[Rfam]
RNA: Small Cajal body specific RNA 15
Organism: Geococcyx californianus
RNA sequence: CUGGAGGACUAAGAAAGUGGAGCCAGUGAUGUUACGUUGGCUCCGCUGAUACUAUCCUCCUACAUCAAACGGUGGAAGAACAAGGCCUGCCUGUAAGAGAAAGCCAGGACCUACUUCCUCUGCCUACAAGG
Numbered sequence: 001c002u003g004g005a006g007g008a009c010u011a012a013g014a015a016a017g018u019g020g021a022g023c024c025a026g027u028g029a030u031g032u033u034a035c036g037u038u039g040g041c042u043c044c045g046c047u048g049a050u051a052c053u054a055u056c057c058u059c060c061u062a063c064a065u066c067a068a069a070c071g072g073u074g075g076a077a078g079a080a081c082a083a084g085g086c087c088u089g090c091c092u093g094u095a096a097g098a099g100a101a102a103g104c105c106a107g108g109a110c111c112u113a114c115u116u117c118c119u120c121u122g123c124c125u126a127c128a129a130g131g
Stems, first nucleotide, its partner, number of pairs: 003060006010051002018045007026035003071124006078117001083112003086108004